Shown here is a 93-nucleotide RNA sequence from Imbroritus primus, a member of the family "SAH (S-adenosyl-L-homocysteine) riboswitch aptamer". A search with the family's covariance model found it, with a score of 57 bits. NCBI's taxonomy places the organism under Bacteria, Pseudomonadati, Burkholderiales, Burkholderiaceae, Imbroritus.
RNA sequence: CAUUCCGAGGAGCGUUGCAACGGAGUGGUGCCUUUUCCGCAAGGUCGCACCUUCCCGCCAGGCUCGGAAGUCUCUCAACCGCGCUCGCUGAUC
Numbered sequence: 001c002a003u004u005c006c007g008a009g010g011a012g013c014g015u016u017g018c019a020a021c022g023g024a025g026u027g028g029u030g031c032c033u034u035u036u037c038c039g040c041a042a043g044g045u046c047g048c049a050c051c052u053u054c055c056c057g058c059c060a061g062g063c064u065c066g067g068a069a070g071u072c073u074c075u076c077a078a079c080c081g082c083g084c085u086c087g088c089u090g091a092u093c
Base pairs, nucleotide, nucleotide: 003069004068005067006066007065008064021057022056023055025053